[Rfam]
RNA sequence: AUGAGUGCCUGUCCACCCCACACUUUUCGUUGCUGCGCCGGACUUGACGGCCGUUUCGUCGGCUCUGUCGAAGUCAUGAGGCGCAACGCGAUAACCGAAGGCGAGCCGCUUGUCCCGUACGCCGGGGCGGCGGCUUUUUUA
Number, nucleotide and partner (000 for none) at each position: 001a000002u000003g000004a000005g000006u000007g038008c037009c035010u000011g033012u032013c000014c029015a000016c000017c000018c000019c000020a000021c000022a000023c000024u000025u000026u000027u000028c000029g014030u000031u000032g012033c011034u000035g009036c000037g008038c007039c000040g000041g000042a000043c000044u000045u000046g000047a000048c000049g000050g000051c000052c083053g082054u081055u080056u000057c000058g000059u000060c000061g075062g074063c073064u000065c000066u000067g000068u000069c000070g000071a000072a000073g063074u062075c061076a000077u000078g000079a000080g055081g054082c053083g052084c000085a000086a000087c000088g000089c000090g000091a000092u103093a000094a000095c100096c000097g000098a000099a000100g095101g000102c000103g092104a135105g134106c133107c132108g131109c130110u000111u129112g128113u127114c126115c125116c124117g000118u000119a000120c000121g000122c000123c000124g116125g115126g114127g113128c112129g111130g109131c108132g107133g106134c105135u104136u000137u000138u000139u000140u000141a000

This 141-nucleotide sequence from Paraburkholderia sediminicola belongs to the Rfam family "Burkholderia sRNA 2". Rfam describes the family as follows. Upregulated in response to iron ion depletion. The organism belongs to Paraburkholderia, within Bacteria. The literature on the family includes a 2017 paper in Microbiology by Ghosh et al., "Identification of novel small RNAs in Burkholderia cenocepacia KC-01 expressed under iron limitation and oxidative stress conditions".